[Rfam]
RNA sequence: UCCGGGAAUAGGCCGACGGGCCGACAAGCGGGGGGUAUCCCUCCCCUGCUUUCCUGGAUAAAAAAGGGAAGC
Number, nucleotide and partner (000 for none) at each position: 001u058002c057003c056004g055005g054006g053007a052008a051009u000010a000011g022012g021013c020014c019015g000016a000017c000018g000019g014020g013021c012022c011023g000024a000025c000026a000027a000028g049029c048030g047031g046032g045033g000034g000035g000036u000037a000038u000039c000040c071041c000042u069043c068044c067045c032046c031047u030048g029049c028050u000051u008052u007053c006054c005055u004056g003057g002058a001059u000060a000061a000062a000063a000064a000065a000066g000067g044068g043069a042070a000071g040072c000
RNA: int-alpA RNA